Small nucleolar RNA snoR2/U65: a 159-nucleotide RNA sequence from Artemisia annua. A search with the family's covariance model found it, with a score of 103 bits. A reference for the family is Shaw et al. (1998), "Localization and processing from a polycistronic precursor of novel snoRNAs in maize", J Cell Sci. The family's RNA type in Rfam is H/ACA-box small nucleolar RNA. Rfam links the family to the GO terms nucleolus and RNA processing.
RNA sequence: GGUUCGAUUGCCACGUCACCGGUAGUUAUAAAUGCAUUGACCGGAAGUGAUGCUACGAUUGAACCUAUAACAAACUCUUGUGUGCUUCGCAUUCUUAUAGGAACCUGUGAACUGCUUAUUCUCCGUUCAUUCACAGAGCCGUUUUGUGUGAUUACAUUU
Numbered sequence: 001g002g003u004u005c006g007a008u009u010g011c012c013a014c015g016u017c018a019c020c021g022g023u024a025g026u027u028a029u030a031a032a033u034g035c036a037u038u039g040a041c042c043g044g045a046a047g048u049g050a051u052g053c054u055a056c057g058a059u060u061g062a063a064c065c066u067a068u069a070a071c072a073a074a075c076u077c078u079u080g081u082g083u084g085c086u087u088c089g090c091a092u093u094c095u096u097a098u099a100g101g102a103a104c105c106u107g108u109g110a111a112c113u114g115c116u117u118a119u120u121c122u123c124c125g126u127u128c129a130u131u132c133a134c135a136g137a138g139c140c141g142u143u144u145u146g147u148g149u150g151a152u153u154a155c156a157u158u159u
Stems, first nucleotide, its partner, number of pairs: 002064007010056001014052006021042003025035002087151005100140002105136003109132003113129002